Record summary:
Shown here is a 73-nucleotide sequence from Capsicum annuum, a member of the family "Plastid-ycf2 5UTR RNA". A search with the family's covariance model found it, with a score of 70 bits. By type it is a cis-regulatory element. About the family: Plastid ycf2 is a non-coding RNA (ncRNA) recognised in plastids. Taxonomically the source falls in Capsicum (Eukaryota, Viridiplantae, Embryophyta, Spermatophyta).
[Rfam]
RNA sequence: GUACAUUCAGUAUGAGUUGAACCUACGAAUUCAGCAAUUAUGAGUUAGGCGCUUUAACCAUUCAGCCAUGGAU
Numbered sequence: 001g002u003a004c005a006u007u008c009a010g011u012a013u014g015a016g017u018u019g020a021a022c023c024u025a026c027g028a029a030u031u032c033a034g035c036a037a038u039u040a041u042g043a044g045u046u047a048g049g050c051g052c053u054u055u056a057a058c059c060a061u062u063c064a065g066c067c068a069u070g071g072a073u
Base pairs, nucleotide, nucleotide: 005073006072007071008070010026011025012024014022040069041068042067044066045065046064048062049061051059